[Rfam]
RNA sequence: UGCUCUUGAGUACAUUCGGUUUUUCAACGCCCUCUCAUCUUACACAACCCUUGGUACUUCCUUCCUUUAGCCAAGCAUAUUAUACGCGGUUUAGCCGCCAAAGGAGAUUUAUAUG
Numbered sequence: 001u002g003c004u005c006u007u008g009a010g011u012a013c014a015u016u017c018g019g020u021u022u023u024u025c026a027a028c029g030c031c032c033u034c035u036c037a038u039c040u041u042a043c044a045c046a047a048c049c050c051u052u053g054g055u056a057c058u059u060c061c062u063u064c065c066u067u068u069a070g071c072c073a074a075g076c077a078u079a080u081u082a083u084a085c086g087c088g089g090u091u092u093a094g095c096c097g098c099c100a101a102a103g104g105a106g107a108u109u110u111a112u113a114u115g
Base pairs, nucleotide, nucleotide: 001046002045050075051074052073053072054071055070062106063105064104065103066102067101086098087097088096089095
Rfam assigns this 115-nucleotide sequence from Streptococcus sp. zg-36 to the family "PreQ1-II (pre queuosine) riboswitch aptamer". On this family, see Meyer et al., RNA 2008: "Confirmation of a second natural preQ1 aptamer class in Streptococcaceae bacteria". NCBI's taxonomy places the organism under Bacteria, Bacillati, Bacilli, Lactobacillales, Streptococcus. preQ1-II riboswitch was first reported for Weinberg et al. 2007 it was recognised in Streptococcaceae and Lactococcus families in 5' untranslated regions of genes of a membrane protein classified as COG4708 or DUF988. Meyers et al. 2008 confirm that preQ1-II recognise the queuosine (Q) precursor pre-queuosine 1 (preQ1). Q is a hyper modified nucleoside present in some anticodons in tRNAs (Try, Asn, Asp and His).